[Rfam]
RNA: Small nucleolar RNA Z155
Organism: Gossypium aridum
RNA sequence: GAUUGAGAUGAUGAUAUUUUGGUUCUGAAAAAAACAUAAAUGUUGACUACAAAGUCAGACUACAAUUAUCUGAUCAUUU
Numbered sequence: 001g002a003u004u005g006a007g008a009u010g011a012u013g014a015u016a017u018u019u020u021g022g023u024u025c026u027g028a029a030a031a032a033a034a035c036a037u038a039a040a041u042g043u044u045g046a047c048u049a050c051a052a053a054g055u056c057a058g059a060c061u062a063c064a065a066u067u068a069u070c071u072g073a074u075c076a077u078u079u
Stems, first nucleotide, its partner, number of pairs: 001079002004076003